[Rfam]
RNA sequence: UGGUGGUGAUGUCUCAACUCACGAUGGUCUUCAGAGCCCCCCUGGGGACUGGUGACAAUGCCUGUGGCAAUGGCUGAACCGUGGGG
Dot-bracket structure: ((((.........................................................................)))).....
Numbered sequence: 001u002g003g004u005g006g007u008g009a010u011g012u013c014u015c016a017a018c019u020c021a022c023g024a025u026g027g028u029c030u031u032c033a034g035a036g037c038c039c040c041c042c043u044g045g046g047g048a049c050u051g052g053u054g055a056c057a058a059u060g061c062c063u064g065u066g067g068c069a070a071u072g073g074c075u076g077a078a079c080c081g082u083g084g085g086g
Stems, first nucleotide, its partner, number of pairs: 001081004

Rfam assigns this 86-nucleotide sequence from Galbula dea to the family "Small nucleolar RNA SNORD35". Rfam 15.1 lists 1,842 matches to the family in 634 species. Its Rfam clan is "SNORD35 clan". U35 is a C/D box snoRNA located in intron 6 of ribosomal protein L13A and intron 3 of ribosomal protein S11 in humans and at homologous positions in mouse and chicken ribosomal protein genes. U35 guides the methylation of 2'-O-ribose sites in 28S rRNA. Rfam classes the family as a C/D-box small nucleolar RNA.